[Rfam]
RNA sequence: AGGGUUCUUCCAGAGGGCCCCCCCUCAAUCCUGUUGUGCUAAGUUCAGAGGGUUGGGUGGAGGCUCUCCAGAAGGACUC
Numbered sequence: 001a002g003g004g005u006u007c008u009u010c011c012a013g014a015g016g017g018c019c020c021c022c023c024c025u026c027a028a029u030c031c032u033g034u035u036g037u038g039c040u041a042a043g044u045u046c047a048g049a050g051g052g053u054u055g056g057g058u059g060g061a062g063g064c065u066c067u068c069c070a071g072a073a074g075g076a077c078u079c
Stems, first nucleotide, its partner, number of pairs: 006075005013068007021060002023057002026055007034048003

The family of this 79-nucleotide RNA from Cavia porcellus is "mir-296 microRNA precursor family". The source organism's lineage runs through Eukaryota, Craniata, Theria, Rodentia and Cavia. The base pairs follow the family's consensus structure, which was predicted with RNAalifold. Rfam links the family to the GO terms miRNA-mediated post-transcriptional gene silencing and RISC complex.